[Rfam]
RNA sequence: CUAAACGAAGUAUAUUUCACUCAUAUAAUCGUGGGGAUAUGGCCCACAAGUUUCUACCGGUUCACCGUAAAUGAACUGACUAUGAGAGCUCAUAUAAGUAGA
Numbered sequence: 001c002u003a004a005a006c007g008a009a010g011u012a013u014a015u016u017u018c019a020c021u022c023a024u025a026u027a028a029u030c031g032u033g034g035g036g037a038u039a040u041g042g043c044c045c046a047c048a049a050g051u052u053u054c055u056a057c058c059g060g061u062u063c064a065c066c067g068u069a070a071a072u073g074a075a076c077u078g079a080c081u082a083u084g085a086g087a088g089c090u091c092a093u094a095u096a097a098g099u100a101g102a
Stems, first nucleotide, its partner, number of pairs: 018088001020086006029049001031047005058078007
This 102-nucleotide RNA from Caryophanon tenue belongs to the Rfam family "Purine riboswitch aptamer". The base pairs follow the family's consensus structure, which is taken from published work. NCBI's taxonomy places the organism under Bacteria, Bacillati, Bacillota, Caryophanales, Caryophanon. A reference for the family is Mandal et al. (2003), "Riboswitches Control Fundamental Biochemical Pathways in Bacillus subtilis and Other Bacteria", Cell.